RNA sequence: GCCUGGGGUUUCCGUCAGGAACCUCCAGAUCGGCCUGCCGUACUGGCUUGCCGAUUCGUGUCUGACACAGCCCACAAGGCCGUUCGACGAGGUUGCGACUGGAACCAAGUUGUCCUGAGGGACGGGGAAGCGUCAUCACGUAUCAGCCCGAUGCACGGUAAAGUUCAGCUACACCCAACGGCACCCACGAGCCGGCAAGUUUUUCUGAACAAUCAAAAUCCGCGCUCGAUACUGUUCGUCC
Number, nucleotide and partner (000 for none) at each position: 001g000002c000003c000004u000005g025006g024007g023008g022009u021010u000011u020012c019013c018014g000015u000016c000017a000018g013019g012020a011021a009022c008023c007024u006025c005026c000027a000028g000029a055030u054031c053032g052033g000034c000035c000036u050037g000038c000039c046040g000041u000042a000043c000044u000045g000046g039047c000048u000049u000050g036051c000052c032053g031054a030055u029056u000057c157058g156059u000060g152061u151062c150063u000064g148065a000066c000067a000068c000069a000070g080071c079072c078073c000074a000075c000076a000077a000078g072079g071080c070081c000082g139083u138084u000085c000086g134087a133088c132089g131090a000091g000092g000093u000094u000095g000096c000097g000098a000099c000100u000101g000102g000103a000104a000105c000106c000107a000108a000109g000110u000111u000112g000113u000114c000115c127116u126117g000118a000119g000120g000121g000122a000123c000124g000125g000126g116127g115128a000129a000130g000131c089132g088133u087134c086135a000136u000137c000138a083139c082140g000141u000142a000143u000144c000145a000146g000147c000148c064149c000150g062151a061152u060153g000154c000155a000156c058157g057158g000159u000160a000161a000162a000163g000164u000165u000166c000167a000168g000169c000170u000171a000172c000173a200174c199175c000176c000177a000178a000179c194180g193181g192182c191183a000184c000185c000186c000187a000188c000189g000190a000191g182192c181193c180194g179195g000196c000197a000198a000199g174200u173201u000202u000203u000204u000205c000206u000207g000208a000209a000210c000211a000212a230213u229214c000215a000216a226217a000218a000219u000220c000221c000222g000223c000224g000225c000226u216227c000228g000229a213230u212231a000232c000233u000234g000235u000236u000237c000238g000239u000240c000241c000
RNA: sRNA regulator of biofilms A
Organism: Pseudomonas fluvialis